[Rfam]
RNA: SAM (S-adenosyl methionine) riboswitch aptamer
RNA sequence: GUUCACGAGCUGCAGCGAUAAGUACCUGGCUUGCUGCACGGCAACCCUCCUCAACCGAGCGGGGUGCCCCAGGGGAAGAACCGGUCCGCGGCACCAGCCGCCGGGCAAGUCGGUGGA
Numbered sequence: 001g002u003u004c005a006c007g008a009g010c011u012g013c014a015g016c017g018a019u020a021a022g023u024a025c026c027u028g029g030c031u032u033g034c035u036g037c038a039c040g041g042c043a044a045c046c047c048u049c050c051u052c053a054a055c056c057g058a059g060c061g062g063g064g065u066g067c068c069c070c071a072g073g074g075g076a077a078g079a080a081c082c083g084g085u086c087c088g089c090g091g092c093a094c095c096a097g098c099c100g101c102c103g104g105g106c107a108a109g110u111c112g113g114u115g116g117a
Base pairs, nucleotide, nucleotide: 001081002080003079004078009039011038012037013036014035015034016033021031022030040068041067042066045064046063047062049059084106085105086104087103088101089100090099091098092097